[Rfam]
RNA: MIR396 microRNA precursor family
RNA sequence: CUUCGUAUUCUUCCACAGCUUUCUUGAACUGCAAUUUCAUGUAAUCAGAUCAUUCAUUCAUUCGUUGUCGUUGAUGGUGCUGCAUAUAUACGAGUACGUUGUUGCGGUUCAAUAAAGCUGUGGGAAGAUACAAACA
Numbered sequence: 001c002u003u004c005g006u007a008u009u010c011u012u013c014c015a016c017a018g019c020u021u022u023c024u025u026g027a028a029c030u031g032c033a034a035u036u037u038c039a040u041g042u043a044a045u046c047a048g049a050u051c052a053u054u055c056a057u058u059c060a061u062u063c064g065u066u067g068u069c070g071u072u073g074a075u076g077g078u079g080c081u082g083c084a085u086a087u088a089u090a091c092g093a094g095u096a097c098g099u100u101g102u103u104g105c106g107g108u109u110c111a112a113u114a115a116a117g118c119u120g121u122g123g124g125a126a127g128a129u130a131c132a133a134a135c136a
Stems, first nucleotide, its partner, number of pairs: 003133001005131003013123003017119006024112004029107007